c-di-AMP riboswitch aptamer (ydaO/yuaA leader): a 143-nucleotide RNA from Paenibacillus xerothermodurans. Rfam describes the family as follows. This family represents a conserved RNA structure found upstream of the ydaO and yuaA genes in Bacillus subtilis and related genes in other bacteria. Taxonomically the source falls in Paenibacillus (Bacteria, Bacillati, Bacilli, Caryophanales).
RNA sequence: CUAAAAAACAGGCCGAAUCCAGUUCAGCACAAGAGCUGGUACGGGGGAUUAUUUCAAUGGGGUGAAUGUUCGAGUGUCUGCGAACUAGGGAAGCCUCUUCCCGAAUCCGUCAACUAACCUCGAAGGCCGCAGGAGGAAUUGCA
Number, nucleotide and partner (000 for none) at each position: 001c000002u000003a000004a000005a000006a000007a000008a000009c000010a000011g128012g127013c126014c125015g000016a000017a000018u000019c039020c038021a037022g036023u035024u034025c033026a000027g000028c000029a000030c000031a000032a000033g025034a024035g023036c022037u021038g020039g019040u000041a000042c122043g121044g120045g119046g118047g000048a000049u000050u059051a058052u000053u000054u000055c000056a000057a000058u051059g050060g108061g107062g106063u000064g000065a000066a000067u000068g085069u084070u083071c082072g000073a000074g000075u000076g000077u000078c000079u000080g000081c000082g071083a070084a069085c068086u000087a000088g102089g101090g100091a099092a000093g000094c000095c000096u000097c000098u000099u091100c090101c089102c088103g000104a000105a000106u062107c061108c060109g000110u000111c000112a000113a000114c000115u000116a000117a000118c046119c045120u044121c043122g042123a000124a000125g014126g013127c012128c011129g000130c000131a000132g000133g000134a000135g000136g000137a000138a000139u000140u000141g000142c000143a000